Overview: A member of the RNA family "Group II catalytic intron D1-D4-3", 169 nucleotides long.
RNA sequence: CCCAUUGUGAGGUGGGAUCUGAAGGAAGCUGAUGGCAAAGUAUGGCAGUGACGCACAGAAAUCAGAUUAGGUAUAUAUGACUGGGUAACCCAGCCAGAGAUGGAAUAACCCGAACUCGAACGGAAGUGCAUAUGUAUAGAUCUGGCAUAGCCAUACGAAGGAGCUACGU
Numbered sequence: 001c002c003c004a005u006u007g008u009g010a011g012g013u014g015g016g017a018u019c020u021g022a023a024g025g026a027a028g029c030u031g032a033u034g035g036c037a038a039a040g041u042a043u044g045g046c047a048g049u050g051a052c053g054c055a056c057a058g059a060a061a062u063c064a065g066a067u068u069a070g071g072u073a074u075a076u077a078u079g080a081c082u083g084g085g086u087a088a089c090c091c092a093g094c095c096a097g098a099g100a101u102g103g104a105a106u107a108a109c110c111c112g113a114a115c116u117c118g119a120a121c122g123g124a125a126g127u128g129c130a131u132a133u134g135u136a137u138a139g140a141u142c143u144g145g146c147a148u149a150g151c152c153a154u155a156c157g158a159a160g161g162a163g164c165u166a167c168g169u
Stems, first nucleotide, its partner, number of pairs: 001016006028169002032165001036161001040156007048148003062145005071137002074134006083111004090103003